[Rfam]
RNA sequence: CAGAUCGUAUGACAACGAUAGAGAGCACGCUUGUACACAGCCCAUGUCCCUUUUAUGGAUGCUAACUAGCGUGCUCUCUCUCGUUGUCAAGCAACG
Numbered sequence: 001c002a003g004a005u006c007g008u009a010u011g012a013c014a015a016c017g018a019u020a021g022a023g024a025g026c027a028c029g030c031u032u033g034u035a036c037a038c039a040g041c042c043c044a045u046g047u048c049c050c051u052u053u054u055a056u057g058g059a060u061g062c063u064a065a066c067u068a069g070c071g072u073g074c075u076c077u078c079u080c081u082c083g084u085u086g087u088c089a090a091g092c093a094a095c096g
Stems, first nucleotide, its partner, number of pairs: 010089005016083002020079002023076001025074007033066002
The family of this 96-nucleotide RNA from Eucalyptus grandis is "MIR535 microRNA precursor family". The base pairs follow the family's consensus structure, which was predicted with RNAalifold. For this family Rfam cites "Conservation and divergence of microRNAs and their functions in Euphorbiaceous plants" (Zeng et al., Nucleic Acids Res, 2010).